[Rfam]
RNA sequence: ACACGGGAGAGGAGGUGGUCCGACGGUGCAGACAUCCAGGACGCGUGAGGUGACUGUCCGCUAGUCGCCCGAGAACAUCGGACGGAGUGCUUCCGGUCCCGACCCGCCUCGAGCGGCGAGCGAGACCCAGGCAGUCGCCGGAGCCCGUGGGGGUCGUGACCCGUCCAUCACGACACCCUGGUCCCAGACCAGGAGCCCACGGGCUUUCUCCUG
Numbered sequence: 001a002c003a004c005g006g007g008a009g010a011g012g013a014g015g016u017g018g019u020c021c022g023a024c025g026g027u028g029c030a031g032a033c034a035u036c037c038a039g040g041a042c043g044c045g046u047g048a049g050g051u052g053a054c055u056g057u058c059c060g061c062u063a064g065u066c067g068c069c070c071g072a073g074a075a076c077a078u079c080g081g082a083c084g085g086a087g088u089g090c091u092u093c094c095g096g097u098c099c100c101g102a103c104c105c106g107c108c109u110c111g112a113g114c115g116g117c118g119a120g121c122g123a124g125a126c127c128c129a130g131g132c133a134g135u136c137g138c139c140g141g142a143g144c145c146c147g148u149g150g151g152g153g154u155c156g157u158g159a160c161c162c163g164u165c166c167a168u169c170a171c172g173a174c175a176c177c178c179u180g181g182u183c184c185c186a187g188a189c190c191a192g193g194a195g196c197c198c199a200c201g202g203g204c205u206u207u208c209u210c211c212u213g
Base pairs, nucleotide, nucleotide: 014058015057016056017055018054019053059122060121061120062119064117065116067114068113070111071110072109073108140207141206142205143204144203145202146201147200148199149198150197151196154173155172156171157170158169159168